[Rfam]
RNA: SAM riboswitch aptamer (S box leader)
Organism: Peptoclostridium acidaminophilum
RNA sequence: UUCUUAUCAAGAGCGGCGGAGGGACAGGCCCUGUGAAGCCCGGCAACAACCAGCAUAGCUGGAAAUGUGCUAAUUCCUGCAGUGUUUAUUUUACUGGAAGAUGAGAA
Numbered sequence: 001u002u003c004u005u006a007u008c009a010a011g012a013g014c015g016g017c018g019g020a021g022g023g024a025c026a027g028g029c030c031c032u033g034u035g036a037a038g039c040c041c042g043g044c045a046a047c048a049a050c051c052a053g054c055a056u057a058g059c060u061g062g063a064a065a066u067g068u069g070c071u072a073a074u075u076c077c078u079g080c081a082g083u084g085u086u087u088a089u090u091u092u093a094c095u096g097g098a099a100g101a102u103g104a105g106a107a
Base pairs, nucleotide, nucleotide: 001107002106003105004104005103006102007101008100013041015040016039017038021031022030023029025079026078027077028076042071043070044069045068047067048066050062051061052060075099080096081095082094083093084092